[Rfam]
RNA sequence: GAAACCACGCCGAAAGGCGUGGCUGAACCGGCAGGAGUCAGCAGAGGUCAUAGUAGGCUGGCCCGACGUCCGGCCAGAUGAAGGAC
Numbered sequence: 001g002a003a004a005c006c007a008c009g010c011c012g013a014a015a016g017g018c019g020u021g022g023c024u025g026a027a028c029c030g031g032c033a034g035g036a037g038u039c040a041g042c043a044g045a046g047g048u049c050a051u052a053g054u055a056g057g058c059u060g061g062c063c064c065g066a067c068g069u070c071c072g073g074c075c076a077g078a079u080g081a082a083g084g085a086c
Stems, first nucleotide, its partner, number of pairs: 002024001005022007038045002047086003056079001058077006